The family of this 44-nucleotide RNA sequence from Paenibacillus sambharensis is "PreQ1 (pre queuosine) riboswitch aptamer". On this family, see Flemmich et al., Nat Commun 2021: "A natural riboswitch scaffold with self-methylation activity". Rfam describes the family as follows. This family is a bacterial riboswitch that binds to the metabolite preQ1, an intermediate in the biosynthesis of the modified nucleoside queuosine from GTP. One example of this riboswitch is located in the leader of the Bacillus subtilis ykvJKLM (queCDEF) operon which encodes four genes necessary for queuosine production. PreQ1 binding to the riboswitch aptamer is thought to induce premature transcription termination within the leader to down-regulate expression of these genes.
[Rfam]
RNA sequence: UCAGGAGAGGUUCGCGAACUCCCUCUAUAAAAAACUACGGAUGA
Numbered sequence: 001u002c003a004g005g006a007g008a009g010g011u012u013c014g015c016g017a018a019c020u021c022c023c024u025c026u027a028u029a030a031a032a033a034a035c036u037a038c039g040g041a042u043g044a
Base pairs, nucleotide, nucleotide: 006026007025008024009023010022016036
The match comes from Rfam's covariance-model search (47 bits). Lineage of the source: Bacteria > Bacillati > Caryophanales > Paenibacillaceae > Paenibacillus.